Rfam assigns this 75-nucleotide RNA from Haemonchus placei to the family "mir-5928 microRNA precursor family". The family has 5 seed sequences and 1,672 matches in Rfam 15.1. The source organism's lineage runs through Eukaryota, Eumetazoa, Rhabditida, Trichostrongylidae and Haemonchus. A search with the family's covariance model found it, with a score of 61 bits.

RNA sequence: GUCCCAAAUUUCAAGUGGAGUAGAUUAGUAGUGUCAGCUUACUCUACUCAACUAUUCUACUUCAAGUUUGUGCCC
Numbered sequence: 001g002u003c004c005c006a007a008a009u010u011u012c013a014a015g016u017g018g019a020g021u022a023g024a025u026u027a028g029u030a031g032u033g034u035c036a037g038c039u040u041a042c043u044c045u046a047c048u049c050a051a052c053u054a055u056u057c058u059a060c061u062u063c064a065a066g067u068u069u070g071u072g073c074c075c
Base pairs, nucleotide, nucleotide: 001074003072005070006069007068008067009066011064013062014061015060016059017058018057019056020055021054022053023052025050027048028047029046030045033042034041